This 53-nucleotide RNA sequence belongs to the Rfam family "Na+ riboswitch aptamer (DUF1646)". The base pairs follow the family's consensus structure, which is taken from published work. The sequence is in the family's curated seed alignment. The literature on the family includes a 2022 paper in Nat Chem Biol by White et al., "Na(+) riboswitches regulate genes for diverse physiological processes in bacteria".
[Rfam]
RNA sequence: GGUUGGCAGCCCGUCCGGGCUGUUCAAGAUUUGAGCUUGUUGGGUGGAGAGCU
Numbered sequence: 001g002g003u004u005g006g007c008a009g010c011c012c013g014u015c016c017g018g019g020c021u022g023u024u025c026a027a028g029a030u031u032u033g034a035g036c037u038u039g040u041u042g043g044g045u046g047g048a049g050a051g052c053u
Stems, first nucleotide, its partner, number of pairs: 003027003006023006034053005040047001